[Rfam]
RNA sequence: UAUUAACGUAAGUAAUAACACACACGUAUCGACACAUUCGCCGGGGUGCUCUGGGAAUUCGUUCUACAGGGUCGGCGUUAUGGGAUACGUGGAGGCAUAAC
Numbered sequence: 001u002a003u004u005a006a007c008g009u010a011a012g013u014a015a016u017a018a019c020a021c022a023c024a025c026g027u028a029u030c031g032a033c034a035c036a037u038u039c040g041c042c043g044g045g046g047u048g049c050u051c052u053g054g055g056a057a058u059u060c061g062u063u064c065u066a067c068a069g070g071g072u073c074g075g076c077g078u079u080a081u082g083g084g085a086u087a088c089g090u091g092g093a094g095g096c097a098u099a100a101c
Base pairs, nucleotide, nucleotide: 023091024090025089026088027087028086029085030084035082036081037080040076041075042074043073048072049071050070051069052068
The family of this 101-nucleotide sequence from Ewingella americana is "t44 RNA".
This family consists of a number of bacterial RNA genes of between 135 and 170 bases in length. The t44 gene has been identified in several species of enteric bacteria but homologs have also been identified in Pseudomonas and Coxiella species. The t44 gene is found between the map and rpsB genes in all species in the full alignment apart from Shigella flexneri.
Taxonomically the source falls in Ewingella americana (Bacteria, Pseudomonadati, Gammaproteobacteria, Ewingella).
The match comes from Rfam's covariance-model search (79 bits).